[Rfam]
Small nucleolar RNA Z105: a 74-nucleotide sequence from Ipomoea nil. A search with the family's covariance model found it, with a score of 57 bits. By type it is a C/D-box small nucleolar RNA.
RNA sequence: CAAACAUGAUGAGGAAGAACAUAAAUUAUUCCGAUUAAUUUCAUGAAGGAAUAUCAACCUCCUACUCAUUCUGA
Number, nucleotide and partner (000 for none) at each position: 001c000002a000003a000004a000005c000006a069007u068008g067009a066010u000011g000012a000013g000014g000015a000016a000017g000018a000019a000020c000021a000022u000023a000024a000025a000026u000027u000028a000029u050030u049031c000032c000033g000034a000035u045036u000037a000038a000039u000040u000041u000042c000043a000044u000045g035046a000047a000048g000049g030050a029051a000052u000053a000054u000055c000056a000057a000058c000059c000060u000061c000062c000063u000064a000065c000066u009067c008068a007069u006070u000071c000072u000073g000074a000